Shown here is a 202-nucleotide sequence from Gossypium davidsonii, a member of the family "Plant small nucleolar RNA U3".
Its Rfam clan is "U3 clan".
Small nucleolar RNAs (snoRNAs) are involved in the processing and modification of rRNA in the nucleolus. There are two main classes of snoRNAs: the box C/D class, and the box H/ACA class. U3 snoRNA is a member of the box C/D class. Indeed, the box C/D element is a subset of the six short sequence elements found in all U3 snoRNAs, namely boxes A, A', B, C, C', and D. The U3 snoRNA secondary structure is characterised by a small 5' domain (with boxes A and A'), and a larger 3' domain (with boxes B, C, C', and D), the two domains being linked by a single-stranded hinge. Boxes B and C form the B/C motif, which appears to be exclusive to U3 snoRNAs, and boxes C' and D form the C'/D motif. The latter is functionally similar to the C/D motifs found in other snoRNAs. The 5' domain and the hinge region act as a pre-rRNA-binding domain. The 3' domain has conserved protein-binding sites. Both the box B/C and box C'/D motifs are sufficient for nuclear retention of U3 snoRNA. The box C'/D motif is also necessary for nucleolar localisation, stability and hyper-methylation of U3 snoRNA. Both box B/C and C'/D motifs are involved in specific protein interactions and are necessary for the rRNA processing functions of U3 snoRNA.
Taxonomically the source falls in Gossypium (Eukaryota, Euphyllophyta, Magnoliopsida, Pentapetalae).
Gene Ontology terms of the family: RNA processing and nucleolus.
RNA sequence: AGGAUCUGUUCUAUAGGCUCGUACCUCUGUGUCCUUAAGUUCAAAGGAGACAGGAUUCUAAGUCUGGUUGAUGAACCACGACUAUGUGAUCAGAGCGUGAUUACUGGUCCGGUGAUGCCCUUGCUGGCUCUCCUCGACCGCAGAGGAUCGUUCUCAGCUUGCCUUGUGCGGCUGGGAAGGUCACACAGUUGUCUGACAGACU
Numbered sequence: 001a002g003g004a005u006c007u008g009u010u011c012u013a014u015a016g017g018c019u020c021g022u023a024c025c026u027c028u029g030u031g032u033c034c035u036u037a038a039g040u041u042c043a044a045a046g047g048a049g050a051c052a053g054g055a056u057u058c059u060a061a062g063u064c065u066g067g068u069u070g071a072u073g074a075a076c077c078a079c080g081a082c083u084a085u086g087u088g089a090u091c092a093g094a095g096c097g098u099g100a101u102u103a104c105u106g107g108u109c110c111g112g113u114g115a116u117g118c119c120c121u122u123g124c125u126g127g128c129u130c131u132c133c134u135c136g137a138c139c140g141c142a143g144a145g146g147a148u149c150g151u152u153c154u155c156a157g158c159u160u161g162c163c164u165u166g167u168g169c170g171g172c173u174g175g176g177a178a179g180g181u182c183a184c185a186c187a188g189u190u191g192u193c194u195g196a197c198a199g200a201c202u
Stems, first nucleotide, its partner, number of pairs: 001007002027053004032048005062201005081189003085185007094152004105140005111134002114132002117129001119127002154175005160170003